[Rfam]
RNA sequence: GACCCUAAGGAUGACCAUUAUUGAAACUUUCGUUCUCCUGAGGCUAUCAAUGCUGACAAAUCAUUGGAGACCUGAACUGAAGGGUU
Numbered sequence: 001g002a003c004c005c006u007a008a009g010g011a012u013g014a015c016c017a018u019u020a021u022u023g024a025a026a027c028u029u030u031c032g033u034u035c036u037c038c039u040g041a042g043g044c045u046a047u048c049a050a051u052g053c054u055g056a057c058a059a060a061u062c063a064u065u066g067g068a069g070a071c072c073u074g075a076a077c078u079g080a081a082g083g084g085u086u
Stems, first nucleotide, its partner, number of pairs: 003084004
Shown here is an 86-nucleotide sequence from Momordica charantia, a member of the family "Small nucleolar RNA Z159/U59". Rfam 15.1 lists 1,401 matches to the family in 272 species. The literature on the family includes a 2003 paper in Nucleic Acids Res by Chen et al., "The high diversity of snoRNAs in plants: identification and comparative study of 120 snoRNA genes from Oryza sativa". A search with the family's covariance model found it, with a score of 62 bits. The family's RNA type in Rfam is C/D-box small nucleolar RNA. The family is grouped with related families in Rfam's "SNORD59 clan".